A member of the RNA family "SAH (S-adenosyl-L-homocysteine) riboswitch aptamer" from Modicisalibacter ilicicola, 85 nucleotides long.

[Rfam]
RNA sequence: CUGUCCGAGGGGCGCUGCAGUGCAUGACGAAAUUCAUGCGCGAGGCUCGGGCAGGGUGUCGCAAACGCAACGGCGCCCAUUCCCC
Numbered sequence: 001c002u003g004u005c006c007g008a009g010g011g012g013c014g015c016u017g018c019a020g021u022g023c024a025u026g027a028c029g030a031a032a033u034u035c036a037u038g039c040g041c042g043a044g045g046c047u048c049g050g051g052c053a054g055g056g057u058g059u060c061g062c063a064a065a066c067g068c069a070a071c072g073g074c075g076c077c078c079a080u081u082c083c084c085c
Base pairs, nucleotide, nucleotide: 002053003052004051005050006049007048008047021040022039023038024037025036026035
The literature on the family includes a 2008 paper in Mol Cell by Wang et al., "Riboswitches that sense S-adenosylhomocysteine and activate genes involved in coenzyme recycling".